[Rfam]
RNA sequence: AAUGCGCCCGGAUGAUGUCUUCAUCGGCCGUUUAAUUAUUAUUGUGUAUUUGGUCGGUGGGACUUUCGUCCGUUUGCAAA
Numbered sequence: 001a002a003u004g005c006g007c008c009c010g011g012a013u014g015a016u017g018u019c020u021u022c023a024u025c026g027g028c029c030g031u032u033u034a035a036u037u038a039u040u041a042u043u044g045u046g047u048a049u050u051u052g053g054u055c056g057g058u059g060g061g062a063c064u065u066u067c068g069u070c071c072g073u074u075u076g077c078a079a080a
Stems, first nucleotide, its partner, number of pairs: 003078004009072007017063004022059002025056005